[Rfam]
The record is a 100-nucleotide sequence from Endozoicomonas sp. G2_1, which matches "c-di-GMP-I riboswitch aptamer" in Rfam. It scores 69 bits against the family's covariance model. Lineage of the source: Bacteria > Pseudomonadota > Oceanospirillales > Endozoicomonadaceae > Endozoicomonas. Rfam describes the family as follows. GEMM was predicted in a large-scale screen for bacterial structured RNA regulatory elements. Its family is annotated with cyclic-di-GMP binding in the Gene Ontology. Pairs were carried over by alignment from the consensus structure, which is taken from published work.

RNA sequence: ACAAAGAAAAGGCAACACAUAUGAAAGUAUGUUACGCAAAGCUUCCGGCCUAAGGUUUAAGUUAUUUAAUAACAAAAACUAUGGUAGCGGGGUUACCUCG
Numbered sequence: 001a002c003a004a005a006g007a008a009a010a011g012g013c014a015a016c017a018c019a020u021a022u023g024a025a026a027g028u029a030u031g032u033u034a035c036g037c038a039a040a041g042c043u044u045c046c047g048g049c050c051u052a053a054g055g056u057u058u059a060a061g062u063u064a065u066u067u068a069a070u071a072a073c074a075a076a077a078a079c080u081a082u083g084g085u086a087g088c089g090g091g092g093u094u095a096c097c098u099c100g
Stems, first nucleotide, its partner, number of pairs: 012037002017032006040094004045090003048085003055079004